[Rfam]
RNA sequence: CCAUGAACUUUGUAUCACGCACAUCACUUAGAUGAACUCCAAAGAGUUGCAUAGAAG
Numbered sequence: 001c002c003a004u005g006a007a008c009u010u011u012g013u014a015u016c017a018c019g020c021a022c023a024u025c026a027c028u029u030a031g032a033u034g035a036a037c038u039c040c041a042a043a044g045a046g047u048u049g050c051a052u053a054g055a056a057g
Stems, first nucleotide, its partner, number of pairs: 019037001022034004

The record is a 57-nucleotide RNA from Gossypium barbadense, which matches "Plastid-ndhJ 3UTR RNA" in Rfam.
About the family: Plastid ndhJ is a non-coding RNA (ncRNA) present in plastids.
The organism belongs to Gossypium, within Eukaryota.
It scores 53 bits against the family's covariance model.
The family's consensus secondary structure was predicted with LocARNA.
The family's RNA type in Rfam is cis-regulatory element.